[Rfam]
RNA sequence: CUCAGAUGCAGAACUUAGUUCAUUCGUGAGCAUCGAUCCAAACCUGUUCACAGUGGCUAAGUUCAGUCUCUGAC
Numbered sequence: 001c002u003c004a005g006a007u008g009c010a011g012a013a014c015u016u017a018g019u020u021c022a023u024u025c026g027u028g029a030g031c032a033u034c035g036a037u038c039c040a041a042a043c044c045u046g047u048u049c050a051c052a053g054u055g056g057c058u059a060a061g062u063u064c065a066g067u068c069u070c071u072g073a074c
Stems, first nucleotide, its partner, number of pairs: 011064010026051007